[Rfam]
About this RNA: Guanidine-II riboswitch aptamer (mini-ykkC): a 48-nucleotide sequence from Roseomonas indoligenes. The family's consensus secondary structure is taken from published work. The family has 72 seed sequences and 1,589 matches in Rfam 15.1. Lineage of the source: Bacteria > Pseudomonadati > Alphaproteobacteria > Roseomonadaceae > Roseomonas.
RNA sequence: CGCCGGGGACGACCCCACGGAAACUUCUGACCCGCCGGGACGGCCCGG
Numbered sequence: 001c002g003c004c005g006g007g008g009a010c011g012a013c014c015c016c017a018c019g020g021a022a023a024c025u026u027c028u029g030a031c032c033c034g035c036c037g038g039g040a041c042g043g044c045c046c047g048g
Stems, first nucleotide, its partner, number of pairs: 003019001005016004035048005
Dot-bracket structure: ..(.((((....))))..)...............(((((....)))))

The match comes from Rfam's covariance-model search (35 bits).